A member of the RNA family "RNase E 5' UTR element" from Affinibrenneria salicis, 338 nucleotides long. It scores 287 bits against the family's covariance model. Rfam links the family to the GO term regulation of gene expression. The family's consensus secondary structure is taken from published work. The literature on the family includes a 2000 paper in Genes Dev by Diwa et al., "An evolutionarily conserved RNA stem-loop functions as a sensor that directs feedback regulation of RNase E gene expression". Lineage of the source: Bacteria > Pseudomonadota > Gammaproteobacteria > Pectobacteriaceae > Affinibrenneria. It is annotated as a cis-regulatory element. This family represents a conserved element found in the 5' UTR of RNase E mRNA. RNase E is a key regulatory enzyme in the pathway of mRNA degradation in E. coli that is able to auto-regulate the degradation of its own mRNA in response to changes in RNase E activity. This rne 5' UTR element acts as a sensor of cellular RNase E concentration enabling tight regulation of RNase E concentration and synthesis.
[Rfam]
RNA sequence: CUUUCCGUGCUGAUUUCCCUUAGAACAAGGAAAUUUGCGGAAUUAUUAAAUUUGCCUGAUCGUGCAUAAACGCAGCAAUGGCGUAAGACGUAAUGUAAAAUCAAGCAGUUAGCGGGCUGCGGAUGGCUGCCUGACCGGCCAAUGGAAUCAGAUCUGGCGACACUCUUCAGAAGCUGUUCCCCAGUUAAACGCGCUGUUUUCCACCAGGAAACACAGGCUACCGAAACAUGCGCCUCUAUGCAGGCGACAACCGGGAGGUUGACGUCGCUGCGAUAAGACACGAGGCCAUCGGUUUAUCCCGGUCAUAAGGCUCUUUUUGUCCGCAGCUCUAUCAAUAA
Numbered sequence: 001c002u003u004u005c006c007g008u009g010c011u012g013a014u015u016u017c018c019c020u021u022a023g024a025a026c027a028a029g030g031a032a033a034u035u036u037g038c039g040g041a042a043u044u045a046u047u048a049a050a051u052u053u054g055c056c057u058g059a060u061c062g063u064g065c066a067u068a069a070a071c072g073c074a075g076c077a078a079u080g081g082c083g084u085a086a087g088a089c090g091u092a093a094u095g096u097a098a099a100a101u102c103a104a105g106c107a108g109u110u111a112g113c114g115g116g117c118u119g120c121g122g123a124u125g126g127c128u129g130c131c132u133g134a135c136c137g138g139c140c141a142a143u144g145g146a147a148u149c150a151g152a153u154c155u156g157g158c159g160a161c162a163c164u165c166u167u168c169a170g171a172a173g174c175u176g177u178u179c180c181c182c183a184g185u186u187a188a189a190c191g192c193g194c195u196g197u198u199u200u201c202c203a204c205c206a207g208g209a210a211a212c213a214c215a216g217g218c219u220a221c222c223g224a225a226a227c228a229u230g231c232g233c234c235u236c237u238a239u240g241c242a243g244g245c246g247a248c249a250a251c252c253g254g255g256a257g258g259u260u261g262a263c264g265u266c267g268c269u270g271c272g273a274u275a276a277g278a279c280a281c282g283a284g285g286c287c288a289u290c291g292g293u294u295u296a297u298c299c300c301g302g303u304c305a306u307a308a309g310g311c312u313c314u315u316u317u318u319g320u321c322c323g324c325a326g327c328u329c330u331a332u333c334a335a336u337a338a
Stems, first nucleotide, its partner, number of pairs: 003042006014032004052108004057103003063097004070091003075082002114329011132305007144180005153171005191218002194216004198211004220293005232286005245264002248261005